[Rfam]
The family of this 165-nucleotide RNA from Hoyosella subflava is "c-di-AMP riboswitch aptamer (ydaO/yuaA leader)". This family represents a conserved RNA structure found upstream of the ydaO and yuaA genes in Bacillus subtilis and related genes in other bacteria. NCBI's taxonomy places the organism under Bacteria, Bacillati, Mycobacteriales, Hoyosellaceae, Hoyosella subflava.
RNA sequence: GAAGGUCAGCCGCCUAAUCAGUGCCCGCACGAAGCGAGCACUGAACCGGGGAACCACGUUUCCACUGGGGUGAAUCCCGCGCCGGACUUGACACCGGAUGUGGGUAGGGCCGUCUUCCAGGCCCGAACCCGUCAGCUAACUCGGUCGGCGGUCGAUGGAAGAAAC
Dot-bracket structure: ..........((((...(((((((.............)))))))((((((....((.........))(((.....((((((.................))))))..((((..........))))...))).........)))))).))))...............
Numbered sequence: 001g002a003a004g005g006u007c008a009g010c011c012g013c014c015u016a017a018u019c020a021g022u023g024c025c026c027g028c029a030c031g032a033a034g035c036g037a038g039c040a041c042u043g044a045a046c047c048g049g050g051g052a053a054c055c056a057c058g059u060u061u062c063c064a065c066u067g068g069g070g071u072g073a074a075u076c077c078c079g080c081g082c083c084g085g086a087c088u089u090g091a092c093a094c095c096g097g098a099u100g101u102g103g104g105u106a107g108g109g110c111c112g113u114c115u116u117c118c119a120g121g122c123c124c125g126a127a128c129c130c131g132u133c134a135g136c137u138a139a140c141u142c143g144g145u146c147g148g149c150g151g152u153c154g155a156u157g158g159a160a161g162a163a164a165c
Stems, first nucleotide, its partner, number of pairs: 011150004018044007045145006055067002068130003076104006107124004